[Rfam]
RNA sequence: GAGCGUUGACGUUUCAUGCCUUUCUGAUGGAGGGGUUCAUCAGUGUUUUCUGAUCUUUAAGUGAAGACAAUGUAGGCCUUUCUGAGCUC
Dot-bracket structure: ((((.................................................................................))))
RNA: small nucleolar RNA snoR114